[Rfam]
RNA: Group II catalytic intron D1-D4-5
Organism: Paenisporosarcina antarctica
RNA sequence: GCGAAAUGUUUCUAGCUGAAUUGGUGGAUGGUCACAUCUCUCUAGUAAAGGCUAGGCAGUUUCAGAUUUCUCUCUGCGUCGAAUAGCACGCGGUUUAAUAAGAAAACGUGUGUUAUAAGCUCGGCUAAUAGGCGUGAGAAUUUACCGUAACAGUCCGGCUGACGAAAGCCUACCCGAGGGGGUGGUGUAAAUCAUGGUGCUUGAGUUGAACAG
Number, nucleotide and partner (000 for none) at each position: 001g000002c000003g000004a000005a071006a000007u000008g000009u000010u000011u000012c000013u000014a000015g000016c000017u000018g000019a000020a000021u000022u000023g000024g000025u000026g000027g000028a000029u000030g000031g000032u000033c000034a000035c000036a000037u000038c000039u000040c000041u000042c000043u000044a000045g000046u000047a000048a000049a000050g000051g000052c000053u000054a000055g000056g000057c000058a000059g000060u000061u000062u000063c000064a000065g000066a000067u000068u000069u000070c000071u005072c205073u204074c203075u000076g000077c000078g000079u124080c123081g122082a121083a116084u115085a114086g113087c112088a111089c110090g109091c108092g107093g000094u105095u104096u103097a000098a000099u000100a000101a000102g000103a096104a095105a094106a000107c092108g091109u090110g089111u088112g087113u086114u085115a084116u083117a000118a000119g000120c000121u082122c081123g080124g079125c000126u000127a000128a000129u000130a000131g201132g200133c199134g198135u197136g000137a000138g000139a000140a192141u191142u190143u189144a188145c187146c164147g163148u162149a000150a000151c000152a160153g159154u000155c000156c000157g000158g000159c153160u152161g000162a148163c147164g146165a000166a000167a000168g186169c185170c184171u000172a183173c182174c181175c180176g000177a000178g000179g000180g175181g174182g173183u172184g170185g169186u168187g145188u144189a143190a142191a141192u140193c000194a000195u000196g000197g135198u134199g133200c132201u131202u000203g074204a073205g072206u000207u000208g000209a000210a000211c000212a000213g000